[Rfam]
RNA sequence: ACCCCACACAAAUAAGCCGGCCAAUUUCUGUUUUUCAAUUGGAAUUUGGUGUGCUCGUUGUGGGAACAGCAAAGUCUUUUCAUGUGUAUGGUAGCAGACUGUUUUAUGUCUAGAUUACCAAAGGAAGAUUAGAAACA
Numbered sequence: 001a002c003c004c005c006a007c008a009c010a011a012a013u014a015a016g017c018c019g020g021c022c023a024a025u026u027u028c029u030g031u032u033u034u035u036c037a038a039u040u041g042g043a044a045u046u047u048g049g050u051g052u053g054c055u056c057g058u059u060g061u062g063g064g065a066a067c068a069g070c071a072a073a074g075u076c077u078u079u080u081c082a083u084g085u086g087u088a089u090g091g092u093a094g095c096a097g098a099c100u101g102u103u104u105u106a107u108g109u110c111u112a113g114a115u116u117a118c119c120a121a122a123g124g125a126a127g128a129u130u131a132g133a134a135a136c137a
Base pairs, nucleotide, nucleotide: 020050021049022048023047024046026044027043078132079131089120090119091118092117093116094115099113100112101111
The record is a 137-nucleotide RNA from Callosobruchus maculatus, which matches "Small nucleolar RNA snoR639/H1" in Rfam. The match comes from Rfam's covariance-model search (43 bits). Rfam classes the family as an H/ACA-box small nucleolar RNA. The organism belongs to Callosobruchus, within Eukaryota. On this family, see Yuan et al., Nucleic Acids Res 2003: "RNomics in Drosophila melanogaster: identification of 66 candidates for novel non-messenger RNAs". snoR639 or snoH1 belongs to the H/ACA class of snoRNAs which are thought to guide the sites of modification of uridines to pseudouridines. snoH1 is found in an intron of the mfl gene in Drosophila. Its family is annotated with nucleolus and RNA processing in the Gene Ontology.